[Rfam]
RNA sequence: AAAGGAGAAAUAAACCCUUUCUUGUUCUAUCAAGAGGGCGUUAUUUCUCCUUUCUUUUC
Number, nucleotide and partner (000 for none) at each position: 001a053002a052003a051004g050005g049006a048007g047008a046009a045010a044011u043012a042013a041014a000015c038016c037017c036018u000019u000020u035021c034022u033023u032024g031025u000026u000027c000028u000029a000030u000031c024032a023033a022034g021035a020036g017037g016038g015039c000040g000041u013042u012043a011044u010045u009046u008047c007048u006049c005050c004051u003052u002053u001054c000055u000056u000057u000058u000059c000

Record summary: This 59-nucleotide RNA belongs to the Rfam family "Plastid-psbA-2 3UTR RNA". For this family Rfam cites "Retrograde signaling in plants: A critical review focusing on the GUN pathway and beyond" (Richter et al., Plant Commun, 2023). The family's consensus secondary structure was predicted with LocARNA. Rfam's curators write: Plastid psbA-2 is a non-coding RNA (ncRNA) present in plastids. It was identified in inverted repeat sequences in the 3 prime untranslate region (3UTR) of photosystem II quinone-binding protein (psbA).